Nucleotides: 095
Stems, first nucleotide, its partner, number of pairs: 001094007010027003029065005071087005
Number, partner (000 for none) and nucleotide at each position: 001094g002093g003092g004091g005090u006089g007088g008000u009000a010027g011026c012025a013000c014000a015000g016000u017000u018000g019000g020000g021000a022000g023000a024000u025012u026011g027010c028000g029065c030064a031063c032062g033061a034000c035000u036000g037000a038000a039000g040000u041000g042000a043000a044000c045000u046000u047000c048000a049000g050000u051000u052000u053000a054000u055000c056000a057000u058000c059000u060000a061033u062032c063031g064030u065029g066000a067000g068000g069000u070000c071087g072086c073085c074084g075083g076000u077000u078000c079000a080000a081000u082000c083075c084074c085073g086072g087071c088007u089006c090005a091004c092003c093002c094001c095000a
A member of the RNA family "tRNA" from Penicillium alfredii, 95 nucleotides long. The family's consensus secondary structure is taken from published work. Transfer RNA (tRNA) molecules are approximately 80 nucleotides in length.